Background: This 321-nucleotide RNA from Scyliorhinus torazame belongs to the Rfam family "Nuclear RNase P". Its Rfam clan is "RNaseP clan". A search with the family's covariance model found it, with a score of 185 bits. By type it is a ribozyme.
RNA sequence: GUGGGGUGAAGCUCACUUUAGAGGUUACUUGCUGAGUGCAUUAUCACUCCUCAUCCCUCGGGGAAGGUCUGAGAGAAGAGCCGAUCACUACUCCUGCAGGGUGUCACCUGAUUCGGGUGAGGAAGUCACCAGGCAUACGGUCUGGGUAGUGUGCAGAAAGCAGGAGAAGCGGUUUCCAGCGUUUGGACCUGUUCCAACAUGGAAUGUGGAUGCAGCAUUCUGCCCAGAAUGGGAACGGCUUCCGGCUGGCUAAGAUUGAGUUCAAUGUGUGAGAUGAGACAAUGGAGCCUCACAACCCAAUUCAGACUACUCUCACCCCAC
Numbered sequence: 001g002u003g004g005g006g007u008g009a010a011g012c013u014c015a016c017u018u019u020a021g022a023g024g025u026u027a028c029u030u031g032c033u034g035a036g037u038g039c040a041u042u043a044u045c046a047c048u049c050c051u052c053a054u055c056c057c058u059c060g061g062g063g064a065a066g067g068u069c070u071g072a073g074a075g076a077a078g079a080g081c082c083g084a085u086c087a088c089u090a091c092u093c094c095u096g097c098a099g100g101g102u103g104u105c106a107c108c109u110g111a112u113u114c115g116g117g118u119g120a121g122g123a124a125g126u127c128a129c130c131a132g133g134c135a136u137a138c139g140g141u142c143u144g145g146g147u148a149g150u151g152u153g154c155a156g157a158a159a160g161c162a163g164g165a166g167a168a169g170c171g172g173u174u175u176c177c178a179g180c181g182u183u184u185g186g187a188c189c190u191g192u193u194c195c196a197a198c199a200u201g202g203a204a205u206g207u208g209g210a211u212g213c214a215g216c217a218u219u220c221u222g223c224c225c226a227g228a229a230u231g232g233g234a235a236c237g238g239c240u241u242c243c244g245g246c247u248g249g250c251u252a253a254g255a256u257u258g259a260g261u262u263c264a265a266u267g268u269g270u271g272a273g274a275u276g277a278g279a280c281a282a283u284g285g286a287g288c289c290u291c292a293c294a295a296c297c298c299a300a301u302u303c304a305g306a307c308u309a310c311u312c313u314c315a316c317c318c319c320a321c
Base pairs, nucleotide, nucleotide: 001321002320003319004318007315008314009313012273013272014271015270016269018267021059022058023057024056034049035048036047037046038045069305070304071303072302073301079247080246081245082244089103090102091101092100093099104120105119106118107117108116109115121243122242123241124240125239126238127237141228142227143226144225145224146223147222148221149220275292276291277290278289280287